This 132-nucleotide sequence from Dipodomys ordii belongs to the Rfam family "Small nucleolar RNA SNORA9". The source organism's lineage runs through Eukaryota, Opisthokonta, Sarcopterygii, Heteromyidae and Dipodomys. Rfam classes the family as an H/ACA-box small nucleolar RNA. Its Rfam clan is "SNORA9 clan". Rfam describes the family as follows. ACA9 is a member of the H/ACA class of snoRNA that guide the sites of modification of uridines to pseudouridines. Rfam links the family to the GO terms RNA processing and nucleolus. The family has 36 seed sequences and 1,202 matches in Rfam 15.1.
RNA sequence: UAGCAAGCUUCUAGCACGCGUGGGUCUGCCAUGGCCCUGUUCACGCCUACAGAGCUCACCAGAACAGUCUCGAAACCGUUUGAGGCCUUCUCCUGCUCCAUCAGAGCAAGAUUAUAGAAAUUUCAGACAAUC
Numbered sequence: 001u002a003g004c005a006a007g008c009u010u011c012u013a014g015c016a017c018g019c020g021u022g023g024g025u026c027u028g029c030c031a032u033g034g035c036c037c038u039g040u041u042c043a044c045g046c047c048u049a050c051a052g053a054g055c056u057c058a059c060c061a062g063a064a065c066a067g068u069c070u071c072g073a074a075a076c077c078g079u080u081u082g083a084g085g086c087c088u089u090c091u092c093c094u095g096c097u098c099c100a101u102c103a104g105a106g107c108a109a110g111a112u113u114a115u116a117g118a119a120a121u122u123u124c125a126g127a128c129a130a131u132c
Stems, first nucleotide, its partner, number of pairs: 003059001006056003018042001022037005072124004087110003091106001093104003